Shown here is a 126-nucleotide RNA from Streptomyces sp. F-1, a member of the family "Streptomyces RNA 3920".
RNA sequence: GAUACCCCCCUGCCAUCAGCGUGAUUGGACACUGACAGAGAGUCAACUAGCCUUGGUCGCACGGUUCUUCGCAAGCGGAACCGCAGACGGUCCGAGCCAAGAGGGGGGAGGCUCGGACCGUCGUCC
Numbered sequence: 001g002a003u004a005c006c007c008c009c010c011u012g013c014c015a016u017c018a019g020c021g022u023g024a025u026u027g028g029a030c031a032c033u034g035a036c037a038g039a040g041a042g043u044c045a046a047c048u049a050g051c052c053u054u055g056g057u058c059g060c061a062c063g064g065u066u067c068u069u070c071g072c073a074a075g076c077g078g079a080a081c082c083g084c085a086g087a088c089g090g091u092c093c094g095a096g097c098c099a100a101g102a103g104g105g106g107g108g109a110g111g112c113u114c115g116g117a118c119c120g121u122c123g124u125c126c
Base pairs, nucleotide, nucleotide: 001014003012004011016050018048021032022031023030033045034044035043036042058075062071063070064069076083077082086122087121088120089119090118091117092116093115094114095113096112097111098110
Dot-bracket structure: (.((......)).).(.(..(((......)))((((.....))))..).).......(...(((....)))...)((....))..(((((((((((((...........)))))))))))))....
From the family's description: Identified by deep sequencing of transcriptome at the end of exponential growth phase. Sequencing size consistent with northern blot size. The organism belongs to Streptomyces, within Bacteria. The match comes from Rfam's covariance-model search (88 bits).